[Rfam]
RNA: TPP riboswitch aptamer (THI element)
Organism: Streptosporangium carneum
RNA sequence: GUAAGCAAGAGCGGGAGCUUGGGGCAACCAGGCUGAGAGGGCGACUACGGCUGUCGCCGACCGCAUGAACCUGUCCGGGUAAUGCCGGCGUAGGGAGCACGUCAUGGCGUCCG
Numbered sequence: 001g002u003a004a005g006c007a008a009g010a011g012c013g014g015g016a017g018c019u020u021g022g023g024g025c026a027a028c029c030a031g032g033c034u035g036a037g038a039g040g041g042c043g044a045c046u047a048c049g050g051c052u053g054u055c056g057c058c059g060a061c062c063g064c065a066u067g068a069a070c071c072u073g074u075c076c077g078g079g080u081a082a083u084g085c086c087g088g089c090g091u092a093g094g095g096a097g098c099a100c101g102u103c104a105u106g107g108c109g110u111c112c113g
Stems, first nucleotide, its partner, number of pairs: 006101001009098001011064004017033005040058005070094004075088004